[Rfam]
RNA sequence: CGAAUGGGGGCCGGCGAUGCGUCCCGGUCGGAUGUGGAACGGCGUAAGCCGGUCUGCCGAUCGACUCGGGGCGUGGACCGGUGCGGAUUGGUGCGGCGGCCAAAGCCCGGACUGUUGAUAGGCCCGUGGAGAUGCCGUCGCGUCGAUCGUGGUUGGCAGCGCACGCCGUCACGGCGUGCCUCGGCACCUGCGCGCUCCCGGCACCGGCCUGCGGGCACCCCAUUCGGCCCGUCUUGAAACACGG
Numbered sequence: 001c002g003a004a005u006g007g008g009g010g011c012c013g014g015c016g017a018u019g020c021g022u023c024c025c026g027g028u029c030g031g032a033u034g035u036g037g038a039a040c041g042g043c044g045u046a047a048g049c050c051g052g053u054c055u056g057c058c059g060a061u062c063g064a065c066u067c068g069g070g071g072c073g074u075g076g077a078c079c080g081g082u083g084c085g086g087a088u089u090g091g092u093g094c095g096g097c098g099g100c101c102a103a104a105g106c107c108c109g110g111a112c113u114g115u116u117g118a119u120a121g122g123c124c125c126g127u128g129g130a131g132a133u134g135c136c137g138u139c140g141c142g143u144c145g146a147u148c149g150u151g152g153u154u155g156g157c158a159g160c161g162c163a164c165g166c167c168g169u170c171a172c173g174g175c176g177u178g179c180c181u182c183g184g185c186a187c188c189u190g191c192g193c194g195c196u197c198c199c200g201g202c203a204c205c206g207g208c209c210u211g212c213g214g215g216c217a218c219c220c221c222a223u224u225c226g227g228c229c230c231g232u233c234u235u236g237a238a239a240c241a242c243g244g
Base pairs, nucleotide, nucleotide: 001226002225003224004223005222006221007220008219010216011215012214017074020073021072022071023070024069025068026067078207079206080205081204082203083202084201229244230243231242232241
Shown here is a 244-nucleotide part of an RNA from Lactuca sativa, a member of the family "Eukaryotic large subunit ribosomal RNA". NCBI's taxonomy places the organism under Eukaryota, Euphyllophyta, eudicotyledons, Pentapetalae, Lactuca. It scores 3345 bits against the family's covariance model. The base pairs follow the family's consensus structure, which is taken from published work.